[Rfam]
The family of this 90-nucleotide RNA from Medicago truncatula is "MIR2617 microRNA precursor family". Taxonomically the source falls in Medicago (Eukaryota, fabids, Fabales, Papilionoideae).
RNA sequence: AUGUAGCGUGACAUGCCCGUUUGGGAUUUUACUCUGAUGUAUGAUUUAUUUAUUAUUAAUUGAUUUUGGGUAACGGGGUGUUACAGUUUG
Numbered sequence: 001a002u003g004u005a006g007c008g009u010g011a012c013a014u015g016c017c018c019g020u021u022u023g024g025g026a027u028u029u030u031a032c033u034c035u036g037a038u039g040u041a042u043g044a045u046u047u048a049u050u051u052a053u054u055a056u057u058a059a060u061u062g063a064u065u066u067u068g069g070g071u072a073a074c075g076g077g078g079u080g081u082u083a084c085a086g087u088u089u090g
Stems, first nucleotide, its partner, number of pairs: 002090002005087001008084007016077006